U7 small nuclear RNA: a 62-nucleotide RNA from Diceros bicornis. From the family's description: Animal histone pre-mRNAs are spliced by a different mechanism than nuclear pre-mRNAs and self-splicing introns. This processing involves the U7 snRNP, which contains only one RNA species: U7. The 5' end of U7 RNA is thought to base-pair to a conserved spacer element downstream of the cleavage site in histone pre-mRNA. This family contains a number of annotated U7 pseudogenes. It scores 34 bits against the family's covariance model. NCBI's taxonomy places the organism under Eukaryota, Chordata, Dipnotetrapodomorpha, Mammalia, Diceros bicornis. For this family Rfam cites "3' end processing of mouse histone pre-mRNA: evidence for additional base-pairing between U7 snRNA and pre-mRNA" (Spycher et al., Nucleic Acids Res, 1994).
Nucleotides: 062
Base pairs, nucleotide, nucleotide: 031059032058033057034055035054037052038051039050040049041048042047
Number, partner (000 for none) and nucleotide at each position: 001000u002000a003000g004000u005000g006000u007000u008000a009000c010000u011000a012000c013000u014000c015000c016000g017000u018000a019000a020000u021000u022000u023000g024000u025000g026000u027000a028000g029000c030000a031059g032058g033057u034055u035054u036000c037052u038051c039050c040049g041048g042047u043000c044000u045000u046000c047042a048041c049040c050039g051038g052037a053000a054035g055034a056000c057033a058032c059031c060000c061000u062000g